[Rfam]
RNA sequence: ACUUUCCUUGUCUUGGGGUGGUUUGGGAAACUCAAUGAACGUCUAGUGAGAGUCUCCCUGCUGACACCAGAAUCAACACAUACGCACCACCUGAGCUCUGAGCUCAGACCCUGGUGCAAUUUUUGGAACU
Number, nucleotide and partner (000 for none) at each position: 001a000002c000003u000004u000005u000006c018007c017008u016009u015010g000011u000012c000013u000014u000015g009016g008017g007018g006019u000020g000021g061022u060023u000024u000025g000026g000027g056028a055029a000030a053031c052032u051033c050034a000035a000036u000037g000038a000039a047040c046041g000042u000043c000044u000045a000046g040047u039048g000049a000050g033051a032052g031053u030054c000055u028056c027057c000058c000059u000060g022061c021062u000063g000064a000065c000066a000067c000068c000069a000070g000071a000072a000073u000074c000075a000076a000077c000078a000079c000080a000081u000082a000083c000084g117085c116086a115087c114088c113089a112090c000091c107092u106093g105094a104095g103096c102097u000098c000099u000100g000101a000102g096103c095104u094105c093106a092107g091108a000109c000110c000111c000112u089113g088114g087115u086116g085117c084118a000119a000120u000121u000122u000123u000124u000125g000126g000127a000128a000129c000130u000

The record is a 130-nucleotide sequence from Sparus aurata, which matches "U4atac minor spliceosomal RNA" in Rfam.
The match comes from Rfam's covariance-model search (93 bits).
The base pairs follow the family's consensus structure, which is taken from published work.
Lineage of the source: Eukaryota > Eumetazoa > Eupercaria > Spariformes > Sparus.
The family's RNA type in Rfam is spliceosomal small nuclear RNA.
U4atac is an essential component of the minor U12-type spliceosome complex which is required for removal of the rarer class of eukaryotic introns (AT-AC, U12-type).